[Rfam]
RNA sequence: GAAAUUGCUGGGUCGCCUGCAAUUUC
Numbered sequence: 001g002a003a004a005u006u007g008c009u010g011g012g013u014c015g016c017c018u019g020c021a022a023u024u025u026c
Base pairs, nucleotide, nucleotide: 001026002025003024004023005022006021007020008019010017011016
Background
A member of the RNA family "L25-Gammaproteobacteria ribosomal protein leader" from Actinobacillus succinogenes, 26 nucleotides long. Rfam's curators put it in the seed alignment. By type it is a cis-regulatory leader. For this family Rfam cites "Discovery of 20 novel ribosomal leader candidates in bacteria and archaea" (Eckert and Weinberg, BMC Microbiol, 2020).